Annotation:
A member of the RNA family "Clostridiales-1 RNA", 188 nucleotides long. It is annotated as a small RNA. Rfam's curators put it in the seed alignment.

RNA sequence: AUAAUAUGAUUAAAGGGUCAAAAGGUAUCAUCGAUGCAUGCUUGCAUGCAAUUCGAUGUAUACCUUAGUGACCCGCACUACACUGAGAAAGUAGCAAUUUACUAUGCGAAGCUAGUAAAUUAGCGGAUUUCGAGGUGGAGUCAGAUUACGGGAAUGCGGAGCAUGGAGUAAUCUGAUUAAUCAUAAAU
Numbered sequence: 001a002u003a004a005u006a007u008g009a010u011u012a013a014a015g016g017g018u019c020a021a022a023a024g025g026u027a028u029c030a031u032c033g034a035u036g037c038a039u040g041c042u043u044g045c046a047u048g049c050a051a052u053u054c055g056a057u058g059u060a061u062a063c064c065u066u067a068g069u070g071a072c073c074c075g076c077a078c079u080a081c082a083c084u085g086a087g088a089a090a091g092u093a094g095c096a097a098u099u100u101a102c103u104a105u106g107c108g109a110a111g112c113u114a115g116u117a118a119a120u121u122a123g124c125g126g127a128u129u130u131c132g133a134g135g136u137g138g139a140g141u142c143a144g145a146u147u148a149c150g151g152g153a154a155u156g157c158g159g160a161g162c163a164u165g166g167a168g169u170a171a172u173c174u175g176a177u178u179a180a181u182c183a184u185a186a187a188u
Base pairs, nucleotide, nucleotide: 007183008182009181010180011179012178013177016073017072018071019070022066023065024064025063026062027061028060029058030057031056032055033053034052035051037048038047039046040045077141078140079139081137082136083135084134087131088130089129090128094124095123096121097120098119099118100117101116102115103114104113143174144173145172146171147170148169149168154164155163156162157161